[Rfam]
Nucleotides: 347
Stems, first nucleotide, its partner, number of pairs: 040055005059194005070187007085173003089170003095111005112155007195210004200222003312328004318345002321342002
Number, partner (000 for none) and nucleotide at each position: 001000c002000g003000u004000c005000u006000u007000c008000c009000c010000a011000u012000c013000c014000g015000c016000c017000g018000g019000c020000a021000u022000c023000a024000u025000g026000c027000c028000u029000a030000u031000a032000u033000c034000g035000c036000a037000a038000u039000u040055g041054u042053c043052g044051g045000a046000u047000u048000c049000g050000u051044c052043c053042g054041g055040c056000u057000a058000u059194g060193g061192c062191g063190a064000u065000a066000a067000a068000u069000g070187a071186u072185g073184c074183c075182g076181u077000g078000u079000a080000a081000u082000a083000g084000a085173u086172g087171c088000a089170g090169c091168g092000g093000a094000c095111c096110c097109g098108g099107g100000g101000g102000c103000a104000g105000u106000a107099c108098c109097c110096g111095g112155c113154g114153g115152c116151u117150c118149c119000a120000c121000c122000a123000c124000a125000a126000a127000c128000c129000c130000c131000g132000g133000u134000a135000a136000c137000g138000g139000g140000g141000c142000u143000u144000c145000u146000g147000a148000c149118g150117g151116g152115g153114c154113c155112g156000a157000a158000c159000c160000a161000g162000g163000a164000u165000c166000g167000a168091c169090g170089u171087g172086u173085a174000u175000u176000c177000a178000a179000a180000g181076a182075c183074g184073g185072u186071g187070u188000u189000u190063u191062u192061g193060c194059c195210c196209g197208g198207c199000c200222u201221g202220a203000a204000u205000g206000a207198g208197c209196c210195g211000u212000u213000a214000a215000a216000c217000c218000g219000u220202u221201c222200a223000a224000a225000a226000c227000c228000a229000c230000a231000a232000g233000u234000g235000c236000a237000a238000a239000c240000g241000a242000u243000a244000a245000c246000g247000a248000a249000g250000c251000a252000c253000u254000c255000g256000c257000u258000c259000u260000c261000g262000c263000a264000g265000c266000g267000u268000a269000a270000u271000u272000g273000a274000g275000g276000g277000g278000g279000c280000u281000u282000c283000a284000c285000c286000g287000c288000c289000c290000c291000u292000g293000a294000c295000a296000u297000u298000a299000u300000c301000c302000u303000a304000a305000a306000a307000g308000a309000a310000c311000g312328c313327g314326g315325u316000u317000c318345g319344g320000g321342c322341c323000g324000a325315a326314c327313c328312g329000g330000g331000c332000a333000a334000c335000a336000g337000a338000a339000u340000c341322g342321g343000a344319u345318u346000c347000c